[Rfam]
RNA sequence: AAGACAGAAAGUUAAGCGGUUACAAAAAGGUCUUGGGGAUUACAAUAAUAGGGGGAAAUUUAAAAUGGGAACUAUCGUAUGUCAAGUUUGUGAGAGCACAAUUGCACAUUUUGAGGAUGAAAAAGUAACGGUAUUAUACGGAAAAUGUAGCUCUAAAUGCGAUUGUGAGCAUAAAGAGCAUACUAAAGCCCAAUAAAUAAGGAAGCGCCUGCAUAUGCAGGCGUUUUUUAGUGA
Numbered sequence: 001a002a003g004a005c006a007g008a009a010a011g012u013u014a015a016g017c018g019g020u021u022a023c024a025a026a027a028a029g030g031u032c033u034u035g036g037g038g039a040u041u042a043c044a045a046u047a048a049u050a051g052g053g054g055g056a057a058a059u060u061u062a063a064a065a066u067g068g069g070a071a072c073u074a075u076c077g078u079a080u081g082u083c084a085a086g087u088u089u090g091u092g093a094g095a096g097c098a099c100a101a102u103u104g105c106a107c108a109u110u111u112u113g114a115g116g117a118u119g120a121a122a123a124a125g126u127a128a129c130g131g132u133a134u135u136a137u138a139c140g141g142a143a144a145a146u147g148u149a150g151c152u153c154u155a156a157a158u159g160c161g162a163u164u165g166u167g168a169g170c171a172u173a174a175a176g177a178g179c180a181u182a183c184u185a186a187a188g189c190c191c192a193a194u195a196a197a198u199a200a201g202g203a204a205g206c207g208c209c210u211g212c213a214u215a216u217g218c219a220g221g222c223g224u225u226u227u228u229u230a231g232u233g234a
Stems, first nucleotide, its partner, number of pairs: 016126002020123002025118001032115007041106001066101001068099001073094001078093001152168002156164001197232002200229010
RNA: SR1 sRNA